Shown here is a 189-nucleotide sequence from Rhizoctonia solani, a member of the family "U2 spliceosomal RNA". Taxonomically the source falls in Rhizoctonia solani AG-1 (Eukaryota, Agaricomycotina, Agaricomycetes, Ceratobasidiaceae). Gene Ontology terms of the family: U2 snRNP, pre-mRNA branch point binding and mRNA branch site recognition.

RNA sequence: UUACCACUCUGGCCUUUUGGCUUAGAUCAAGUGUAGUAUCUGUUCUUUUAGUCUUAAUCGACUAAACGCUGGCACCGCCAGCUAUAUCGAUUAUUCAAUUUUUGCCGCCCGGGUCGCUGCUCCUCUGCUUGCACGAGCGGUUACAAGAUGACCUUGCCCUUACAGUACUGGCCUGUGUCGUCGCGGGAU
Number, nucleotide and partner (000 for none) at each position: 001u000002u000003a000004c000005c000006a000007c000008u026009c025010u024011g022012g021013c020014c019015u000016u000017u000018u000019g014020g013021c012022u011023u000024a010025g009026a008027u000028c000029a000030a000031g000032u000033g000034u000035a000036g000037u000038a000039u000040c000041u000042g000043u000044u000045c000046u000047u066048u065049u064050a063051g062052u061053c000054u000055u000056a000057a000058u000059c000060g000061a052062c051063u050064a049065a048066a047067c000068g082069c081070u080071g079072g078073c077074a000075c000076c000077g073078c072079c071080a070081g069082c068083u000084a000085u000086a000087u000088c000089g000090a000091u000092u000093a000094u000095u000096c000097a000098a000099u000100u000101u000102u000103u000104g000105c000106c000107g000108c000109c000110c000111g000112g000113g144114u143115c000116g141117c140118u139119g138120c137121u000122c000123c000124u135125c000126u133127g132128c000129u000130u000131g000132c127133a126134c000135g124136a000137g120138c119139g118140g117141u116142u000143a114144c113145a000146a000147g182148a181149u180150g179151a178152c177153c175154u000155u000156g172157c171158c170159c000160u000161u000162a000163c000164a000165g000166u000167a000168c000169u000170g158171g157172c156173c000174u000175g153176u000177g152178u151179c150180g149181u148182c147183g000184c000185g000186g000187g000188a000189u000